[Rfam]
RNA sequence: CCCGCACUCGUUUCACUACGGAUCGUCCGGCACGUACCUGCCGGUGAAGGAGAAAAGA
Numbered sequence: 001c002c003c004g005c006a007c008u009c010g011u012u013u014c015a016c017u018a019c020g021g022a023u024c025g026u027c028c029g030g031c032a033c034g035u036a037c038c039u040g041c042c043g044g045u046g047a048a049g050g051a052g053a054a055a056a057g058a
Stems, first nucleotide, its partner, number of pairs: 009050001011048002014046002027044006
Dot-bracket structure: ........(.((.((...........((((((......)))))))))).)........